Rfam assigns this 90-nucleotide sequence from Nicotiana tabacum to the family "mir-156 microRNA precursor family".
[Rfam]
RNA sequence: GUGACAGAAGAGAGUGAGCACACAUGGUCUUUUCUUGCAUGAAAUCCGUCUAUGCUUGAAGCUAUGCGUGCUCGCUGCUCUAUCUGUCAC
Dot-bracket structure: ((((((((.((((((((((((.(((......................................))).))))))))).)))..))))))))
Numbered sequence: 001g002u003g004a005c006a007g008a009a010g011a012g013a014g015u016g017a018g019c020a021c022a023c024a025u026g027g028u029c030u031u032u033u034c035u036u037g038c039a040u041g042a043a044a045u046c047c048g049u050c051u052a053u054g055c056u057u058g059a060a061g062c063u064a065u066g067c068g069u070g071c072u073c074g075c076u077g078c079u080c081u082a083u084c085u086g087u088c089a090c
Stems, first nucleotide, its partner, number of pairs: 001090008010080003013076009023066003

The family's consensus secondary structure was predicted with PFOLD. On this family, see Reinhart et al., Genes Dev 2002: "MicroRNAs in plants". The match comes from Rfam's covariance-model search (86 bits). From the family's description: This family represents the plant microRNA (miRNA) precursor mir-156. The source organism's lineage runs through Eukaryota, Streptophytina, Solanaceae, Nicotianeae and Nicotiana.